[Rfam]
RNA sequence: ACGCGUCUUUUCAUCCAAUUGUCAAUGUGUAAUCCAAUGUUGAUGAUUCAGCGAAUUCAUUCAGACGCAAUACUGACAACUUCUCCAUUGACAUCUAGUCAGACUAAACUGGCUUGGAUACAAUUAGGAAGUUUACAUUU
Numbered sequence: 001a002c003g004c005g006u007c008u009u010u011u012c013a014u015c016c017a018a019u020u021g022u023c024a025a026u027g028u029g030u031a032a033u034c035c036a037a038u039g040u041u042g043a044u045g046a047u048u049c050a051g052c053g054a055a056u057u058c059a060u061u062c063a064g065a066c067g068c069a070a071u072a073c074u075g076a077c078a079a080c081u082u083c084u085c086c087a088u089u090g091a092c093a094u095c096u097a098g099u100c101a102g103a104c105u106a107a108a109c110u111g112g113c114u115u116g117g118a119u120a121c122a123a124u125u126a127g128g129a130a131g132u133u134u135a136c137a138u139u140u
Stems, first nucleotide, its partner, number of pairs: 003068005017048012078133007087124004093119005098113005
This 140-nucleotide RNA from Caenorhabditis briggsae belongs to the Rfam family "Caenorhabditis snoRNA ceN38". Rfam 15.1 lists 8 matches to the family in 8 species. Rfam's curators put it in the seed alignment. For this family Rfam cites "Systematic identification of non-coding RNA 2,2,7-trimethylguanosine cap structures in Caenorhabditis elegans" (Jia et al., BMC Mol Biol, 2007).